[Rfam]
RNA sequence: UGGUAGCUGGAACCACCAGGCUCUCUAGCCGAACCCAGCCUUCAAAUCAACCCACGGG
Numbered sequence: 001u002g003g004u005a006g007c008u009g010g011a012a013c014c015a016c017c018a019g020g021c022u023c024u025c026u027a028g029c030c031g032a033a034c035c036c037a038g039c040c041u042u043c044a045a046a047u048c049a050a051c052c053c054a055c056g057g058g
Stems, first nucleotide, its partner, number of pairs: 001018004006039005019030004
RNA: DUF3085 RNA